[Rfam]
This 107-nucleotide RNA sequence from Abrus precatorius belongs to the Rfam family "Small nucleolar RNA snoR97". Rfam classes the family as an H/ACA-box small nucleolar RNA. The match comes from Rfam's covariance-model search (104 bits). A reference for the family is Marker et al. (2002), "Experimental RNomics: identification of 140 candidates for small non-messenger RNAs in the plant Arabidopsis thaliana", Curr Biol. The family has 7 seed sequences and 862 matches in Rfam 15.1.
RNA sequence: CCUUUUCAAGUGGUUCAUGGUCUGAAAAACUCAAAGACUUAGUGUUGUCAUCAGCUUCAUCUCUUGUUUUACCCACGAGAUAGGAGUUAAAUAACAGCACUACAUUU
Numbered sequence: 001c002c003u004u005u006u007c008a009a010g011u012g013g014u015u016c017a018u019g020g021u022c023u024g025a026a027a028a029a030c031u032c033a034a035a036g037a038c039u040u041a042g043u044g045u046u047g048u049c050a051u052c053a054g055c056u057u058c059a060u061c062u063c064u065u066g067u068u069u070u071a072c073c074c075a076c077g078a079g080a081u082a083g084g085a086g087u088u089a090a091a092u093a094a095c096a097g098c099a100c101u102a103c104a105u106u107u
Stems, first nucleotide, its partner, number of pairs: 041101007053088006060080004